[Rfam]
Description: SAM riboswitch aptamer (S box leader): a 118-nucleotide RNA sequence from Bacilli bacterium VT-13-104. Lineage of the source: Bacteria > Bacillati > Bacillota > Bacilli.
RNA sequence: CUCUUAUCAAGAGCGGUGGAGGGAAUAGGCCCUUUGAAGCCCGGCAACCUGAAAGUUAGUAACUCUUACUUUUCUACGGUGCUAAAUCCUACAGGUCACAUGAACUGGAAGAUAAGAG
Numbered sequence: 001c002u003c004u005u006a007u008c009a010a011g012a013g014c015g016g017u018g019g020a021g022g023g024a025a026u027a028g029g030c031c032c033u034u035u036g037a038a039g040c041c042c043g044g045c046a047a048c049c050u051g052a053a054a055g056u057u058a059g060u061a062a063c064u065c066u067u068a069c070u071u072u073u074c075u076a077c078g079g080u081g082c083u084a085a086a087u088c089c090u091a092c093a094g095g096u097c098a099c100a101u102g103a104a105c106u107g108g109a110a111g112a113u114a115a116g117a118g
Stems, first nucleotide, its partner, number of pairs: 001118008013042001015041003021032003026091004043083004048079002051074005087110001092107003096103002